[Rfam]
RNA sequence: AAUUGGCACUAGGGGUGCCGGAGAAUGGCCGGCUGAGAUAAAGAUCCGCAAUCUUUGACCCUUUUACCUGAUCUGGUUAGUACCAGCGUAGGGAAGUGUAUUGACUUAGUC
Numbered sequence: 001a002a003u004u005g006g007c008a009c010u011a012g013g014g015g016u017g018c019c020g021g022a023g024a025a026u027g028g029c030c031g032g033c034u035g036a037g038a039u040a041a042a043g044a045u046c047c048g049c050a051a052u053c054u055u056u057g058a059c060c061c062u063u064u065u066a067c068c069u070g071a072u073c074u075g076g077u078u079a080g081u082a083c084c085a086g087c088g089u090a091g092g093g094a095a096g097u098g099u100a101u102u103g104a105c106u107u108a109g110u111c
Stems, first nucleotide, its partner, number of pairs: 006099005011062004017033005040056005067092004073086004